[Rfam]
RNA sequence: UAGCAGGUUAGUUACGGUGCAGCUUGUGUCGUGCUGUAUUGUCGUUCCCCCUGCUAAAAUUAACUUGUUUCCAGCUAUCCCUGUCUGUCUACACCCCUCGGACAGCCAGGGACGCAAGGUCUCAGACAU
Numbered sequence: 001u002a003g004c005a006g007g008u009u010a011g012u013u014a015c016g017g018u019g020c021a022g023c024u025u026g027u028g029u030c031g032u033g034c035u036g037u038a039u040u041g042u043c044g045u046u047c048c049c050c051c052u053g054c055u056a057a058a059a060u061u062a063a064c065u066u067g068u069u070u071c072c073a074g075c076u077a078u079c080c081c082u083g084u085c086u087g088u089c090u091a092c093a094c095c096c097c098u099c100g101g102a103c104a105g106c107c108a109g110g111g112a113c114g115c116a117a118g119g120u121c122u123c124a125g126a127c128a129u
Stems, first nucleotide, its partner, number of pairs: 003054005014042010080110004085105004

A member of the RNA family "Small nucleolar RNA SNORA63" from Haplochromis burtoni, 129 nucleotides long. NCBI's taxonomy places the organism under Eukaryota, Vertebrata, Gnathostomata, Ctenosquamata, Haplochromis. The literature on the family includes a 1997 paper in Proc Natl Acad Sci U S A by Mishra and Eliceiri, "Three small nucleolar RNAs that are involved in ribosomal RNA precursor processing". It scores 90 bits against the family's covariance model. Its family is annotated with nucleolus and RNA processing in the Gene Ontology.